[Rfam]
Nucleotides: 106
Stems, first nucleotide, its partner, number of pairs: 004049003019035002022032003070098011
Number, partner (000 for none) and nucleotide at each position: 001000u002000a003000u004049g005048g006047c007000u008000g009000g010000c011000u012000u013000g014000u015000a016000u017000a018000u019035u020034u021000u022032u023031u024030g025000a026000g027000c028000u029000g030024u031023g032022a033000u034020a035019g036000u037000g038000u039000c040000c041000g042000g043000a044000u045000a046000c047006g048005c049004c050000u051000c052000a053000a054000c055000u056000c057000a058000u059000c060000g061000a062000g063000g064000c065000c066000c067000g068000u069000g070098a071097a072096a073095a074094c075093c076092c077091c078090g079089c080088c081000u082000a083000u084000u085000u086000c087000u088080g089079g090078c091077g092076g093075g094074g095073u096072u097071u098070u099000g100000c101000u102000u103000u104000u105000g106000u